[Rfam]
RNA sequence: CCUUAAAUGACGAGUAACUUCAGACUUUCGUUCUUCUGAGUUUGCUGAAGCAAUGUUUUGUUUCUGAUAAGG
Numbered sequence: 001c002c003u004u005a006a007a008u009g010a011c012g013a014g015u016a017a018c019u020u021c022a023g024a025c026u027u028u029c030g031u032u033c034u035u036c037u038g039a040g041u042u043u044g045c046u047g048a049a050g051c052a053a054u055g056u057u058u059u060g061u062u063u064c065u066g067a068u069a070a071g072g
Stems, first nucleotide, its partner, number of pairs: 001072003005068001
RNA: Small nucleolar RNA SNORD59